Source information
The record is a 69-nucleotide RNA from Channa argus, which matches "miR-430 microRNA precursor family" in Rfam. The family is grouped with related families in Rfam's "mir-290 clan". Gene Ontology terms of the family: RISC complex and miRNA-mediated post-transcriptional gene silencing.
RNA sequence: AACAUUGCCUGAACAAUAGCACUGACUCGUGUUUUGAAAGCAGCAAGUGCUAUUUGUUGGGCAAUGUCA
Dot-bracket structure: ...(((((((..((((.((((((..((..............))..))))))..)))).)))))))....